[Rfam]
RNA sequence: GCUGGUGUCCGUGAUGACUUAUCUUUUUUCCCCAGCAGACCGACAGUGUUGAUUGCUCAGGAAUUUAAGCCAAAACCUCUGAAACACCAGC
Numbered sequence: 001g002c003u004g005g006u007g008u009c010c011g012u013g014a015u016g017a018c019u020u021a022u023c024u025u026u027u028u029u030c031c032c033c034a035g036c037a038g039a040c041c042g043a044c045a046g047u048g049u050u051g052a053u054u055g056c057u058c059a060g061g062a063a064u065u066u067a068a069g070c071c072a073a074a075a076c077c078u079c080u081g082a083a084a085c086a087c088c089a090g091c
Stems, first nucleotide, its partner, number of pairs: 001091008
The family of this 91-nucleotide sequence from Anguilla anguilla is "Small nucleolar SNORD12/SNORD106". Rfam 15.1 lists 2,264 matches to the family in 650 species. The organism belongs to Anguilla, within Eukaryota. The literature on the family includes a 2001 paper in EMBO J by Huttenhofer et al., "RNomics: an experimental approach that identifies 201 candidates for novel, small, non-messenger RNAs in mouse". Its family is annotated with nucleolus and RNA processing in the Gene Ontology. The match comes from Rfam's covariance-model search (72 bits).